[Rfam]
RNA: Actinobacteria sRNA Ms_AS-4
Organism: Pseudonocardia asaccharolytica
RNA sequence: CUUCGCAUCGCGGUAGCGGUGCGGAUCGUCGCCGAACUCGGCGAGCACCCGGGCCCCGCGGAUCACACCGAGGCCGGGUUGG
Number, nucleotide and partner (000 for none) at each position: 001c000002u000003u000004c000005g000006c000007a000008u044009c043010g042011c041012g000013g039014u000015a000016g000017c000018g038019g037020u036021g000022c034023g033024g032025a000026u000027c000028g000029u000030c000031g000032c024033c023034g022035a000036a020037c019038u018039c013040g000041g011042c010043g009044a008045g000046c000047a000048c000049c000050c000051g000052g000053g000054c000055c000056c078057c077058g000059c076060g075061g074062a000063u072064c000065a000066c000067a000068c000069c000070g000071a000072g063073g000074c061075c060076g059077g057078g056079u000080u000081g000082g000